[Rfam]
Nucleotides: 070
Stems, first nucleotide, its partner, number of pairs: 001069003013034003017030003
Number, partner (000 for none) and nucleotide at each position: 001069g002068a003067a004000a005000a006000a007000a008000g009000a010000a011000g012000a013034a014033a015032a016000u017030g018029u019028u020000u021000u022000a023000c024000a025000a026000c027000u028019g029018a030017c031000c032015u033014u034013u035000c036000u037000a038000a039000c040000u041000a042000c043000g044000a045000a046000g047000g048000u049000u050000u051000c052000u053000a054000c055000a056000u057000u058000u059000g060000a061000u062000c063000u064000g065000a066000g067003u068002u069001u070000a
Small nucleolar RNA U2-30: a 70-nucleotide RNA from Panthera leo.
The family's consensus secondary structure is taken from published work.
Rfam links the family to the GO terms nucleolus and RNA processing.
It is annotated as a C/D-box small nucleolar RNA.
Taxonomically the source falls in Panthera (Eukaryota, Tetrapoda, Feliformia, Felidae).
It scores 68 bits against the family's covariance model.